[Rfam]
RNA: Histone 3' UTR stem-loop
Organism: Antrostomus carolinensis
RNA sequence: CCAACGGCUCUUUUCAGAGCCACCCACUUUGUUAGCAAAGAGCUG
Numbered sequence: 001c002c003a004a005c006g007g008c009u010c011u012u013u014u015c016a017g018a019g020c021c022a023c024c025c026a027c028u029u030u031g032u033u034a035g036c037a038a039a040g041a042g043c044u045g
Stems, first nucleotide, its partner, number of pairs: 006021006
Dot-bracket structure: .....((((((....))))))........................